[Rfam]
The family of this 87-nucleotide sequence is "freshwater-2 RNA". The family's RNA type in Rfam is cis-regulatory element.

RNA sequence: UGUGCCGCAAGGCGGACUUAUGCUGUUUAACCCACAGCGUAGCUCAUAGAACGGGCAUAGGACUACUAUUAUAGGAGAAACAAAAUG
Numbered sequence: 001u002g003u004g005c006c007g008c009a010a011g012g013c014g015g016a017c018u019u020a021u022g023c024u025g026u027u028u029a030a031c032c033c034a035c036a037g038c039g040u041a042g043c044u045c046a047u048a049g050a051a052c053g054g055g056c057a058u059a060g061g062a063c064u065a066c067u068a069u070u071a072u073a074g075g076a077g078a079a080a081c082a083a084a085a086u087g
Stems, first nucleotide, its partner, number of pairs: 001016001003014004019041007042056004